The family of this 95-nucleotide RNA sequence from Tenacibaculum lutimaris is "TPP riboswitch aptamer (THI element)". Pairs were carried over by alignment from the consensus structure, which is taken from published work. Vitamin B(1) in its active form thiamin pyrophosphate (TPP) is an essential coenzyme that is synthesised by coupling of pyrimidine and thiazole moieties in bacteria. The match comes from Rfam's covariance-model search (68 bits). Taxonomically the source falls in Tenacibaculum (Bacteria, Pseudomonadati, Bacteroidota, Flavobacteriaceae).

RNA sequence: AGUAAACUUUAGGAGUAGCUAGUUCGCUAGUUUGAGAAACAUCCUUAGAACCUGAUAUGGUUAACACCAGCGUAGGGAAAAGUUGUAACAUUUUA
Numbered sequence: 001a002g003u004a005a006a007c008u009u010u011a012g013g014a015g016u017a018g019c020u021a022g023u024u025c026g027c028u029a030g031u032u033u034g035a036g037a038a039a040c041a042u043c044c045u046u047a048g049a050a051c052c053u054g055a056u057a058u059g060g061u062u063a064a065c066a067c068c069a070g071c072g073u074a075g076g077g078a079a080a081a082g083u084u085g086u087a088a089c090a091u092u093u094u095a
Stems, first nucleotide, its partner, number of pairs: 006083005011045004016039001017032005051076004058069003
Rfam links the family to the GO term thiamine pyrophosphate binding.